[Rfam]
A member of the RNA family "Archaeal small subunit ribosomal RNA" from Desulfurococcus amylolyticus, 577 nucleotides of a longer RNA. Rfam links the family to the GO terms ribosome and structural constituent of ribosome. Taxonomically the source falls in Desulfurococcus amylolyticus (Archaea, Thermoproteati, Thermoprotei, Desulfurococcus).
RNA sequence: UGGCGGGGGAGCACCACAAGGGGUGGAGCCUGCGGUUCAAUUGGAGUCAACGCCGGGAAUCUCACCGGGGGAGACAGCAGGAUGACGGCCAGGUUAAAGGCCUUGCCUGACGCGCUGAGAGGAGGUGCAUGGCCGUCGCCAGCUCGUGCUGUGAAGUGUCCGGUUAAGUCCGGAAACGAGUGAGACCCCCACCCCUAGUUGCGACCCGGGGCUACGGCUCCGGGGCACACUAGGGGGACUGCCGCCGUUUAAGGCGGAGGAAGGAGGGGGCCACGGCAGGUCAGCAUGCCCCGAAUCCCCCGGGCUACACGCGGGCUACAAUGGCGGGGACAAUGGGAUCCGACCCCGAAAGGGGGAGGCAAUCCCUCAAACCCCGCCGUAGUUGGGAUCGAGGGCUGCAACUCGCCCUCGUGAACGAGGAAUCCCUAGUAACCGCGUGUCAACAUCGCGCGGUGAAUACGUCCCUGCUCCUUGCACACACCGCCCGUCGCUCCACCCGAGGGGAGGGGGAGUGAGGCCUGGCCCUCUGGGUCGGGUCGAACUCCCCCUCCCUGAGGGGGGAGAAGUCGUAACAAGG
Numbered sequence: 001u002g003g004c005g006g007g008g009g010a011g012c013a014c015c016a017c018a019a020g021g022g023g024u025g026g027a028g029c030c031u032g033c034g035g036u037u038c039a040a041u042u043g044g045a046g047u048c049a050a051c052g053c054c055g056g057g058a059a060u061c062u063c064a065c066c067g068g069g070g071g072a073g074a075c076a077g078c079a080g081g082a083u084g085a086c087g088g089c090c091a092g093g094u095u096a097a098a099g100g101c102c103u104u105g106c107c108u109g110a111c112g113c114g115c116u117g118a119g120a121g122g123a124g125g126u127g128c129a130u131g132g133c134c135g136u137c138g139c140c141a142g143c144u145c146g147u148g149c150u151g152u153g154a155a156g157u158g159u160c161c162g163g164u165u166a167a168g169u170c171c172g173g174a175a176a177c178g179a180g181u182g183a184g185a186c187c188c189c190c191a192c193c194c195c196u197a198g199u200u201g202c203g204a205c206c207c208g209g210g211g212c213u214a215c216g217g218c219u220c221c222g223g224g225g226c227a228c229a230c231u232a233g234g235g236g237g238a239c240u241g242c243c244g245c246c247g248u249u250u251a252a253g254g255c256g257g258a259g260g261a262a263g264g265a266g267g268g269g270g271c272c273a274c275g276g277c278a279g280g281u282c283a284g285c286a287u288g289c290c291c292c293g294a295a296u297c298c299c300c301c302g303g304g305c306u307a308c309a310c311g312c313g314g315g316c317u318a319c320a321a322u323g324g325c326g327g328g329g330a331c332a333a334u335g336g337g338a339u340c341c342g343a344c345c346c347c348g349a350a351a352g353g354g355g356g357a358g359g360c361a362a363u364c365c366c367u368c369a370a371a372c373c374c375c376g377c378c379g380u381a382g383u384u385g386g387g388a389u390c391g392a393g394g395g396c397u398g399c400a401a402c403u404c405g406c407c408c409u410c411g412u413g414a415a416c417g418a419g420g421a422a423u424c425c426c427u428a429g430u431a432a433c434c435g436c437g438u439g440u441c442a443a444c445a446u447c448g449c450g451c452g453g454u455g456a457a458u459a460c461g462u463c464c465c466u467g468c469u470c471c472u473u474g475c476a477c478a479c480a481c482c483g484c485c486c487g488u489c490g491c492u493c494c495a496c497c498c499g500a501g502g503g504g505a506g507g508g509g510g511a512g513u514g515a516g517g518c519c520u521g522g523c524c525c526u527c528u529g530g531g532u533c534g535g536g537u538c539g540a541a542c543u544c545c546c547c548c549u550c551c552c553u554g555a556g557g558g559g560g561g562a563g564a565a566g567u568c569g570u571a572a573c574a575a576g577g
Stems, first nucleotide, its partner, number of pairs: 001478002003475003007472007016462002020426005025319001027317008035308002041056004065303007075117004080111001087107003091103003121292002124290004130286002132281003135277004142181006148157003160173004187269004192236007202225001206223007239260002242257005323378007335366003340359002344355004385416001390411007432454008481576001483573001486569002489566001491563004496558003501553013516538010
Dot-bracket structure: (((((.(((((((..((..((((((.((((((((((....((((........))))........(((((((...((((.(......(((.(((.......))).)))...)..))))...((.((((..(((((((((...(((((((((....)))..((((......))))..)))))).....((((.(((((((...(...(((((((....))))))).)....)))))))..((.(((((......))))).)).....))))....)))).)))...))))))))....)))))))...)).)))))))).)...(((((((.....(((..((..((((....))))..))....))).....)))))))......(....(((((((........)))))))....).....))))).....((((((((.......))))))))......))...)))))))))).))..(.(..((.(.((((.(((..(((((((((((((..((((((((((...))))))))))..)))))))))))))..))).))))..).))...)..).